[Rfam]
RNA sequence: UACUUUCUUAUGGACCGCCGAGGUGUGUCUAUUCGUUAACAGCUAGGCCGUCCAUGAGGUCGUA
Numbered sequence: 001u002a003c004u005u006u007c008u009u010a011u012g013g014a015c016c017g018c019c020g021a022g023g024u025g026u027g028u029c030u031a032u033u034c035g036u037u038a039a040c041a042g043c044u045a046g047g048c049c050g051u052c053c054a055u056g057a058g059g060u061c062g063u064a
Stems, first nucleotide, its partner, number of pairs: 001064003006059010017048003021044002024041003
RNA: hvt-mir-H9 microRNA precursor family
Organism: Mardivirus meleagridalpha1